This 62-nucleotide RNA sequence from Aotus nancymaae belongs to the Rfam family "U7 small nuclear RNA".
The base pairs follow the family's consensus structure, which was predicted with PFOLD.
The match comes from Rfam's covariance-model search (71 bits).
RNA sequence: UAGUGUUACAGAUCUUUUAGAAUUUGUCUAGCAGGUUUUCUAGUAUUCACCAGAAAGCCCUU
Number, nucleotide and partner (000 for none) at each position: 001u000002a000003g000004u000005g000006u000007u000008a000009c000010a000011g000012a000013u000014c000015u000016u000017u000018u000019a000020g000021a000022a000023u000024u000025u000026g000027u000028c000029u000030a000031g000032c000033a000034g059035g058036u057037u056038u055039u054040c053041u052042a000043g050044u049045a000046u000047u000048c000049a044050c043051c000052a041053g040054a039055a038056a037057g036058c035059c034060c000061u000062u000